[Rfam]
RNA sequence: UAGUGUCACUGAAUCACACCUUAUAUAGGUUCAAAAUAGGUUGAACGUUUCUACCAACUACCGUAAUAGUUGACUAUAAGGCUGGUUGGUAUUUUU
Numbered sequence: 001u002a003g004u005g006u007c008a009c010u011g012a013a014u015c016a017c018a019c020c021u022u023a024u025a026u027a028g029g030u031u032c033a034a035a036a037u038a039g040g041u042u043g044a045a046c047g048u049u050u051c052u053a054c055c056a057a058c059u060a061c062c063g064u065a066a067u068a069g070u071u072g073a074c075u076a077u078a079a080g081g082c083u084g085g086u087u088g089g090u091a092u093u094u095u096u
Stems, first nucleotide, its partner, number of pairs: 019081007029046006055072006
RNA: Purine riboswitch aptamer